[Rfam]
MIR2912 microRNA precursor family: a 156-nucleotide RNA sequence from Populus alba.
The source organism's lineage runs through Eukaryota, Euphyllophyta, rosids, Malpighiales and Populus.
Gene Ontology terms of the family: RISC complex and miRNA-mediated post-transcriptional gene silencing.
RNA sequence: UCUAGAACUCAAAAUAUGGGUUGAACAUUAAACAGUGUCUGGGUUGCAGAACAGAUUCUAACUUCUCUUUUGUUACUACAAUUUAAACUUGAAAACAGCCGUUUUGAAUCUUAGACUCUUAAUGAAAGUUUUUGGUCUAUGUUUUAACUUUUCAUC
Numbered sequence: 001u002c003u004a005g006a007a008c009u010c011a012a013a014a015u016a017u018g019g020g021u022u023g024a025a026c027a028u029u030a031a032a033c034a035g036u037g038u039c040u041g042g043g044u045u046g047c048a049g050a051a052c053a054g055a056u057u058c059u060a061a062c063u064u065c066u067c068u069u070u071u072g073u074u075a076c077u078a079c080a081a082u083u084u085a086a087a088c089u090u091g092a093a094a095a096c097a098g099c100c101g102u103u104u105u106g107a108a109u110c111u112u113a114g115a116c117u118c119u120u121a122a123u124g125a126a127a128g129u130u131u132u133u134g135g136u137c138u139a140u141g142u143u144u145u146a147a148c149u150u151u152u153c154a155u156c
Base pairs, nucleotide, nucleotide: 003154005152006151007150009146011145012144013143014142015141016140017139018138019137020136021134023132024131025130027129028128029127035123036122041119042118043117045115048112049111051109054105055104058101062098063097068092069091072088073087074086